[Rfam]
RNA sequence: ACAAGGGAAGUUGUGAAACUUCUUAAUAGAAUAGUUUAGUUAAGUCUAGUUUAGUUUUUGUGUUGUAAGUGCUCCCAUCGUAAGCGAACGAAUGGGAGCACGUUUUUU
Numbered sequence: 001a002c003a004a005g006g007g008a009a010g011u012u013g014u015g016a017a018a019c020u021u022c023u024u025a026a027u028a029g030a031a032u033a034g035u036u037u038a039g040u041u042a043a044g045u046c047u048a049g050u051u052u053a054g055u056u057u058u059u060g061u062g063u064u065g066u067a068a069g070u071g072c073u074c075c076c077a078u079c080g081u082a083a084g085c086g087a088a089c090g091a092a093u094g095g096g097a098g099c100a101c102g103u104u105u106u107u108u
Stems, first nucleotide, its partner, number of pairs: 001061005007022006033052002036049004069101009079090003
This 108-nucleotide sequence from Phocaeicola dorei belongs to the Rfam family "Bacteroides sRNA BTnc049". It is one of the family's seed sequences. Pairs were carried over by alignment from the consensus structure, which is taken from published work. Rfam classes the family as a small RNA. For this family Rfam cites "A high-resolution transcriptome map identifies small RNA regulation of metabolism in the gut microbe Bacteroides thetaiotaomicron" (Ryan et al., Nat Commun, 2020).